[Rfam]
RNA sequence: UAGAGGAAGAAGGCAAAAGCGAAGCUUUUCUUAAAAUGCCUUCUGACGACAUGCACUCGAACGAAGGUGAGGGGGCGCUGCCUUAG
Numbered sequence: 001u002a003g004a005g006g007a008a009g010a011a012g013g014c015a016a017a018a019g020c021g022a023a024g025c026u027u028u029u030c031u032u033a034a035a036a037u038g039c040c041u042u043c044u045g046a047c048g049a050c051a052u053g054c055a056c057u058c059g060a061a062c063g064a065a066g067g068u069g070a071g072g073g074g075g076c077g078c079u080g081c082c083u084u085a086g
Base pairs, nucleotide, nucleotide: 008044009043010042011041012040013039015029016028017027018026019025053076054075057072058071061068062067

About this RNA:
GA-cis RNA: an 86-nucleotide RNA from Schaedlerella arabinosiphila. It is annotated as a small RNA. Lineage of the source: Bacteria > Bacillati > Bacillota > Clostridia > Schaedlerella. The base pairs follow the family's consensus structure, which is taken from published work.